[Rfam]
Rfam assigns this 45-nucleotide sequence from Neomesorhizobium albiziae to the family "Guanidine-II riboswitch aptamer (mini-ykkC)". About the family: Simpler in structure and has fewer highly conserved nucleotide positions than the ykkC-yxkD leader. Despite this each of its two stem-loop structures directly bind free guanidine. It scores 36 bits against the family's covariance model. The base pairs follow the family's consensus structure, which is taken from published work.
RNA sequence: CGCACGGGACGACUCGUGCCCAGAAUUCUCGUCGGGGACGGCCCC
Numbered sequence: 001c002g003c004a005c006g007g008g009a010c011g012a013c014u015c016g017u018g019c020c021c022a023g024a025a026u027u028c029u030c031g032u033c034g035g036g037g038a039c040g041g042c043c044c045c
Base pairs, nucleotide, nucleotide: 002019003018004017005016006015007014008013034045035044036043037042